[Rfam]
RNA sequence: GAUUCCGUAGCUCAGUUGGGAGAGCGCAUGCUUGACAGGCAUGAGGUCGUUGGUUCGAGCCCAAUCGGAAUCA
Numbered sequence: 001g002a003u004u005c006c007g008u009a010g011c012u013c014a015g016u017u018g019g020g021a022g023a024g025c026g027c028a029u030g031c032u033u034g035a036c037a038g039g040c041a042u043g044a045g046g047u048c049g050u051u052g053g054u055u056c057g058a059g060c061c062c063a064a065u066c067g068g069a070a071u072c073a
Stems, first nucleotide, its partner, number of pairs: 001072007010025004027043005049065005
Source information:
Shown here is a 73-nucleotide RNA from Pontibacillus yanchengensis, a member of the family "tRNA". It scores 65 bits against the family's covariance model. About the family: Transfer RNA (tRNA) molecules are approximately 80 nucleotides in length. Their secondary structure includes four short double-helical elements and three loops (D, anti-codon, and T loops). Further hydrogen bonds mediate the characteristic L-shaped molecular structure. tRNAs have two regions of fundamental functional importance: the anti-codon, which is responsible for specific mRNA codon recognition, and the 3' end, to which the tRNAs corresponding amino acid is attached (by aminoacyl-tRNA synthetases). tRNAs cope with the degeneracy of the genetic code in two manners: having more than one tRNA (with a specific anti-codon) for a particular amino acid; and 'wobble' base-pairing, i.e. permitting non-standard base-pairing at the 3rd anti-codon position. Taxonomically the source falls in Pontibacillus yanchengensis (Bacteria, Bacillota, Bacilli, Bacillaceae).